ZMP/ZTP riboswitch aptamer (pfl RNA motif): an 88-nucleotide sequence from Melghiribacillus thermohalophilus.
RNA sequence: UGACAGCGCAGUGACUGACGACUUUCAAGUGGAAUGGACCAUGAGGGAGCUGCGUGAAGAUUUUCAGCCGGUCGUCUGGGCAGGGGGA
Numbered sequence: 001u002g003a004c005a006g007c008g009c010a011g012u013g014a015c016u017g018a019c020g021a022c023u024u025u026c027a028a029g030u031g032g033a034a035u036g037g038a039c040c041a042u043g044a045g046g047g048a049g050c051u052g053c054g055u056g057a058a059g060a061u062u063u064u065c066a067g068c069c070g071g072u073c074g075u076c077u078g079g080g081c082a083g084g085g086g087g088a
Base pairs, nucleotide, nucleotide: 004056005055007054008053009052010051011050012049015046016045017076018075019074020073021072029042030041031040032039065083067081068080069079
About this RNA
The family's consensus secondary structure is taken from published work. Lineage of the source: Bacteria > Bacillota > Bacilli > Bacillaceae > Melghiribacillus.